[Rfam]
Nucleotides: 072
Stems, first nucleotide, its partner, number of pairs: 001071004006066001007064008017054003021051007029044004
Number, partner (000 for none) and nucleotide at each position: 001071c002070c003069a004068c005000a006066g007064a008063a009062u010061g011060c012059g013058u014057c015000g016000a017054a018053u019052a020000u021051c022050a023049a024048a025047a026046u027045c028000a029044u030043g031042u032041c033000a034000a035000a036000a037000u038000a039000u040000g041032g042031a043030u044029a045027g046026a047025u048024u049023u050022u051021g052019u053018a054017u055000g056000a057014g058013a059012c060011g061010c062009a063008u064007u065000u066006c067000c068004g069003u070002g071001g072000c
The record is a 72-nucleotide sequence from Caenorhabditis brenneri, which matches "lsy-6 microRNA precursor family" in Rfam.
It scores 75 bits against the family's covariance model.
Rfam links the family to the GO terms miRNA-mediated post-transcriptional gene silencing and RISC complex.
Taxonomically the source falls in Caenorhabditis (Eukaryota, Opisthokonta, Metazoa, Rhabditomorpha).
Pairs were carried over by alignment from the consensus structure, which was predicted with RNAalifold.